[Rfam]
RNA: Small nucleolar RNA snoR100
Organism: Musa acuminata
RNA sequence: GAAGGAAGGUAGCAUGGUAGGGUGCACAGAGAGGAAAGAACGGGUCAUCAUGUCUGCUCUCGUUGACGCCUUCGGGCAUUGAUCCUGCGGGCCUGGAUUCGACCCACAACC
Numbered sequence: 001g002a003a004g005g006a007a008g009g010u011a012g013c014a015u016g017g018u019a020g021g022g023u024g025c026a027c028a029g030a031g032a033g034g035a036a037a038g039a040a041c042g043g044g045u046c047a048u049c050a051u052g053u054c055u056g057c058u059c060u061c062g063u064u065g066a067c068g069c070c071u072u073c074g075g076g077c078a079u080u081g082a083u084c085c086u087g088c089g090g091g092c093c094u095g096g097a098u099u100c101g102a103c104c105c106a107c108a109a110c111c
Base pairs, nucleotide, nucleotide: 012025013024014023015022042094043093044092045091046090052083053082054081056077057076058075